Small Cajal body specific RNA 15: a 128-nucleotide sequence. Rfam 15.1 lists 635 matches to the family in 528 species. Its Rfam clan is "SCARNA4 clan". Rfam's curators put it in the seed alignment. It is annotated as a small Cajal body RNA. On this family, see Darzacq et al., EMBO J 2002: "Cajal body-specific small nuclear RNAs: a novel class of 2'-O-methylation and pseudouridylation guide RNAs".
[Rfam]
RNA sequence: CUGGAGGACUAAGAAGGCUGAGUCUGAUGAAGUAAGACUUUGCUGAUACAUUCCUCCUAGAAAAAAGGGUUGGAGAGAGCAGCCUUCACUGAAGAGUAUCACAGGGCUGACUGUACUACCCAACACUC
Dot-bracket structure: ..((((((.((......(.(((((...........))))).)....))...))))))..........((.(((.(....(((((((................)))))))....).))).)).......